Shown here is a 118-nucleotide sequence from Terrihalobacillus insolitus, a member of the family "SAM riboswitch aptamer (S box leader)". Lineage of the source: Bacteria > Bacillota > Bacilli > Bacillaceae > Terrihalobacillus. Gene Ontology term of the family: regulation of gene expression.

RNA sequence: UUCUUAUCGAGAGAGGUGGAGGGGAAUGGCCCUAAGAAACCUCGGCAGCGGAUUUCAAUUAAUUUGAAAUACUGUGCUAAUUCCAUCAAGUGAUGAUUAUUCACUUGAAAGAUAAGAA
Numbered sequence: 001u002u003c004u005u006a007u008c009g010a011g012a013g014a015g016g017u018g019g020a021g022g023g024g025a026a027u028g029g030c031c032c033u034a035a036g037a038a039a040c041c042u043c044g045g046c047a048g049c050g051g052a053u054u055u056c057a058a059u060u061a062a063u064u065u066g067a068a069a070u071a072c073u074g075u076g077c078u079a080a081u082u083c084c085a086u087c088a089a090g091u092g093a094u095g096a097u098u099a100u101u102c103a104c105u106u107g108a109a110a111g112a113u114a115a116g117a118a
Base pairs, nucleotide, nucleotide: 001118002117003116004115005114006113007112008111013043014042015041016040017039021032022031023030026086027085028084029083044078045077046076047075049074050073052070053069054068055067056066057065082110087107088106089105090104091103092102